RNA sequence: UGGCGCCCAAUGUGGGGCCCGAGCAUAGGGGAAUCCAGUGAAGAACGCUGUUCAGAGAGCCGGUGAAAAGAAAAAGAAAAUGAAAAAGGAGGAGAGUUGAUGGGAACCUGUCGUCUCUUCUGAACCUCGGUAAGUGGAACAGCAAAUAUGGGACAAGAAAUCAGCCAGCAUGAGUUGUUUGUAAAAGGUCUCAAAAAGGCUUUAAAGGCAGGAGGGGUAAAGGUGACUGUGAAACAAUUGUUAAAAUAUUUUGAUUAUAUUAGAGAUGUUUGUUCUU
Number, nucleotide and partner (000 for none) at each position: 001u000002g000003g000004c000005g000006c031007c030008c029009a000010a000011u000012g026013u025014g024015g000016g000017g000018c000019c000020c000021g000022a000023g000024c014025a013026u012027a000028g000029g008030g007031g006032a000033a000034u000035c000036c050037a049038g048039u047040g000041a000042a000043g000044a000045a000046c000047g039048c038049u037050g036051u000052u000053c000054a000055g000056a000057g000058a000059g000060c000061c000062g000063g000064u000065g000066a000067a000068a000069a000070g000071a000072a000073a000074a000075a000076g000077a000078a000079a000080a000081u000082g000083a000084a000085a000086a000087a127088g126089g125090a000091g000092g000093a000094g121095a119096g118097u000098u000099g115100a114101u113102g112103g111104g000105a000106a000107c000108c000109u000110g000111u103112c102113g101114u100115c099116u000117c000118u096119u095120c000121u094122g000123a000124a000125c089126c088127u087128c000129g000130g000131u000132a000133a000134g000135u156136g000137g154138a000139a000140c152141a000142g000143c150144a149145a000146a000147u000148a000149u144150g143151g000152g140153a000154c137155a000156a135157g000158a000159a000160a000161u204162c000163a202164g200165c199166c198167a000168g000169c000170a000171u000172g000173a000174g000175u000176u000177g000178u000179u000180u000181g000182u000183a000184a000185a000186a000187g000188g000189u000190c000191u000192c000193a000194a000195a000196a000197a000198g166199g165200c164201u000202u163203u000204a161205a000206a000207g000208g000209c000210a000211g000212g252213a251214g250215g249216g000217g247218u246219a000220a000221a239222g238223g000224u236225g235226a000227c000228u000229g000230u000231g000232a000233a000234a000235c225236a224237a000238u222239u221240g000241u000242u000243a000244a000245a000246a218247u217248a000249u215250u214251u213252u212253g000254a000255u000256u000257a000258u000259a000260u000261u000262a277263g276264a000265g274266a273267u272268g000269u000270u000271u000272g267273u266274u265275c000276u263277u262
Mason-Pfizer monkey virus packaging signal: a 277-nucleotide sequence from Heterocephalus glaber. This family represents a group of sequences that are related to the Mason-Pfizer monkey virus (MPMV) packaging signal. The packaging signal is located in the 5' UTR and is required for specific RNA encapsidation. It is annotated as a cis-regulatory element. Rfam links the family to the GO term viral genome packaging.